[Rfam]
RNA sequence: AGCCUCGUUCUGGAUUAGCAUGGGCACUGCUGAUUGGUGUCCAGAAUUGAUCAGUGUGUCUAAAAUUGAGACACGGGUCAUGCUUCUAUCACGGUAAAUAUUUACAGUGGUGACAAUGAGGCCUGUAACAUUU
Numbered sequence: 001a002g003c004c005u006c007g008u009u010c011u012g013g014a015u016u017a018g019c020a021u022g023g024g025c026a027c028u029g030c031u032g033a034u035u036g037g038u039g040u041c042c043a044g045a046a047u048u049g050a051u052c053a054g055u056g057u058g059u060c061u062a063a064a065a066u067u068g069a070g071a072c073a074c075g076g077g078u079c080a081u082g083c084u085u086c087u088a089u090c091a092c093g094g095u096a097a098a099u100a101u102u103u104a105c106a107g108u109g110g111u112g113a114c115a116a117u118g119a120g121g122c123c124u125g126u127a128a129c130a131u132u133u
Base pairs, nucleotide, nucleotide: 002060004058006056007055008054021043022042023041024040025039026038027037073126074125075124076123077122087112088111089110090109091108092107
The record is a 133-nucleotide sequence from Octodon degus, which matches "Small nucleolar RNA SNORA1" in Rfam. Gene Ontology terms of the family: nucleolus and RNA processing. Pairs were carried over by alignment from the consensus structure, which was predicted with PFOLD. ACA1 is a member of the H/ACA class of snoRNA that guide the sites of modification of uridines to pseudouridines.